This 115-nucleotide RNA sequence from Nezara viridula belongs to the Rfam family "U4atac minor spliceosomal RNA". On this family, see Lorkovic et al., RNA 2005: "Evolutionary conservation of minor U12-type spliceosome between plants and humans". From the family's description: U4atac is an essential component of the minor U12-type spliceosome complex which is required for removal of the rarer class of eukaryotic introns (AT-AC, U12-type). Its Rfam clan is "U4 clan". By type it is a spliceosomal small nuclear RNA.
RNA sequence: AUCAUCUCUGUCAAGGGGAGCAUAAUGUUCUAUGAUCGUAUAGUGAGGGCAUUGAUGCUGACACCCAUACAAUAUUUAAUCGCACCGCCUCGGUAUAUUAAGUAUUAUUAAAUAA
Numbered sequence: 001a002u003c004a005u006c007u008c009u010g011u012c013a014a015g016g017g018g019a020g021c022a023u024a025a026u027g028u029u030c031u032a033u034g035a036u037c038g039u040a041u042a043g044u045g046a047g048g049g050c051a052u053u054g055a056u057g058c059u060g061a062c063a064c065c066c067a068u069a070c071a072a073u074a075u076u077u078a079a080u081c082g083c084a085c086c087g088c089c090u091c092g093g094u095a096u097a098u099u100a101a102g103u104a105u106u107a108u109u110a111a112a113u114a115a
Stems, first nucleotide, its partner, number of pairs: 005019005020058004024053007037043001096114004101109001